The family of this 115-nucleotide RNA sequence is "U5 spliceosomal RNA".
U5 RNA is a component of both types of known spliceosome. The precise function of this molecule is unknown, though it is known that the 5' loop is required for splice site selection and p220 binding, and that both the 3' stem-loop and the Sm site are important for Sm protein binding and cap methylation.
Rfam classes the family as a spliceosomal small nuclear RNA.
On this family, see Hinz et al., J Biol Chem 1996: "Domain analysis of human U5 RNA. Cap trimethylation, protein binding, and spliceosome assembly".
RNA sequence: AUACUCUGGUUUCUCUUCAGAUCGUAUAAAUCUUUCGCCUUUUACUAAAGAUUUCCGUGGAGAGGAACAACCACGAGUGUCGUGGAAUUUUUUGAGGCUCCGCUUCGGCGGAGCU
Numbered sequence: 001a002u003a004c005u006c007u008g009g010u011u012u013c014u015c016u017u018c019a020g021a022u023c024g025u026a027u028a029a030a031u032c033u034u035u036c037g038c039c040u041u042u043u044a045c046u047a048a049a050g051a052u053u054u055c056c057g058u059g060g061a062g063a064g065g066a067a068c069a070a071c072c073a074c075g076a077g078u079g080u081c082g083u084g085g086a087a088u089u090u091u092u093u094g095a096g097g098c099u100c101c102g103c104u105u106c107g108g109c110g111g112a113g114c115u
Base pairs, nucleotide, nucleotide: 003078004077005076006075009068010067011066012065013064014063015062016061017060018059019058028054029053030052031051032050033049034048035047095115097114098113099112100111101110102109